RNA sequence: ACAAACCUUCAGGGCAGGGUGAGAUUCCCGACCGGCGGUGAUGAAGUGUACGUUCGCUUCUUAGUCCGCGACCCAGACGUUAAAAAGCAACCAUACGUCUGGCUGACCCGGUGUAACUCCGGGACCGACAGUAUAGUCUGGAUGGGAGAAGGGAGAA
Numbered sequence: 001a002c003a004a005a006c007c008u009u010c011a012g013g014g015c016a017g018g019g020u021g022a023g024a025u026u027c028c029c030g031a032c033c034g035g036c037g038g039u040g041a042u043g044a045a046g047u048g049u050a051c052g053u054u055c056g057c058u059u060c061u062u063a064g065u066c067c068g069c070g071a072c073c074c075a076g077a078c079g080u081u082a083a084a085a086a087g088c089a090a091c092c093a094u095a096c097g098u099c100u101g102g103c104u105g106a107c108c109c110g111g112u113g114u115a116a117c118u119c120c121g122g123g124a125c126c127g128a129c130a131g132u133a134u135a136g137u138c139u140g141g142a143u144g145g146g147a148g149a150a151g152g153g154a155g156a157a
Stems, first nucleotide, its partner, number of pairs: 006152005017029003031137002033127002035069004064125002073102007107123005129140003

The family of this 157-nucleotide RNA sequence from Aneurinibacillus migulanus is "FMN riboswitch aptamer (RFN element)". Lineage of the source: Bacteria > Bacillati > Bacillota > Bacilli > Aneurinibacillus. Gene Ontology term of the family: FMN binding. The match comes from Rfam's covariance-model search (108 bits).